[Rfam]
RNA sequence: AGAUUGAAACUGAGAACCAGAUAAACUCAAAUCUUUGCUUCCAUCAAAAUGAAAAACUUAAGAUUUGAUUUUCUCUGGUAUCUCAUCUUCAAUUA
Numbered sequence: 001a002g003a004u005u006g007a008a009a010c011u012g013a014g015a016a017c018c019a020g021a022u023a024a025a026c027u028c029a030a031a032u033c034u035u036u037g038c039u040u041c042c043a044u045c046a047a048a049a050u051g052a053a054a055a056a057c058u059u060a061a062g063a064u065u066u067g068a069u070u071u072u073c074u075c076u077g078g079u080a081u082c083u084c085a086u087c088u089u090c091a092a093u094u095a
Base pairs, nucleotide, nucleotide: 004092005091006090007089008088011085012084013083014082016079017078018077019076020075021074023072024071025070027068028067029066030065032063033062
This 95-nucleotide sequence from Carex littledalei belongs to the Rfam family "MIR2275 microRNA precursor family". The base pairs follow the family's consensus structure, which was predicted with RNAalifold. It scores 64 bits against the family's covariance model.